The record is an 84-nucleotide RNA sequence from Mycoplasma sp. CAG:472, which matches "SAM riboswitch aptamer (S box leader)" in Rfam. The organism belongs to Mycoplasma, within Bacteria.
RNA sequence: AUCUUAUAAAGAGUGAUGGAGGGACUAGCCCGUUGAAGUCACACCAACCUAUUAAAUUAGGUGGUAAUGCUAGAUCUAUAAGAU
Numbered sequence: 001a002u003c004u005u006a007u008a009a010a011g012a013g014u015g016a017u018g019g020a021g022g023g024a025c026u027a028g029c030c031c032g033u034u035g036a037a038g039u040c041a042c043a044c045c046a047a048c049c050u051a052u053u054a055a056a057u058u059a060g061g062u063g064g065u066a067a068u069g070c071u072a073g074a075u076c077u078a079u080a081a082g083a084u
Stems, first nucleotide, its partner, number of pairs: 001084008013042005021031003025073004043065004048061002051057002069076001